This 75-nucleotide sequence from Nocardioides baekrokdamisoli belongs to the Rfam family "ZMP/ZTP riboswitch aptamer (pfl RNA motif)". The source organism's lineage runs through Bacteria, Bacillati, Propionibacteriales, Nocardioidaceae and Nocardioides. It scores 41 bits against the family's covariance model.
RNA sequence: UCUGCGCCAUACGACUGGCGCGGGUGGGCGACCACCGGGGAGUCUGAGUUGGCAUCGUCCGCCUGGGUGCACUCA
Numbered sequence: 001u002c003u004g005c006g007c008c009a010u011a012c013g014a015c016u017g018g019c020g021c022g023g024g025u026g027g028g029c030g031a032c033c034a035c036c037g038g039g040g041a042g043u044c045u046g047a048g049u050u051g052g053c054a055u056c057g058u059c060c061g062c063c064u065g066g067g068u069g070c071a072c073u074c075a
Stems, first nucleotide, its partner, number of pairs: 003051002008046002011043002015039002017063004024035004052070005